[Rfam]
RNA: ZMP/ZTP riboswitch aptamer (pfl RNA motif)
RNA sequence: CCUGAAACAUGUGACUGACGGAAGUGGAGUUACCACGGGGAGCAUGAUUCAUACGAGCCGACCGUCUGGGCGAAACGU
Numbered sequence: 001c002c003u004g005a006a007a008c009a010u011g012u013g014a015c016u017g018a019c020g021g022a023a024g025u026g027g028a029g030u031u032a033c034c035a036c037g038g039g040g041a042g043c044a045u046g047a048u049u050c051a052u053a054c055g056a057g058c059c060g061a062c063c064g065u066c067u068g069g070g071c072g073a074a075a076c077g078u
Base pairs, nucleotide, nucleotide: 003051004050005049006048008046009045010044011043012042015039016038017066018065019064020063021062024036025035026034027033057071058070059069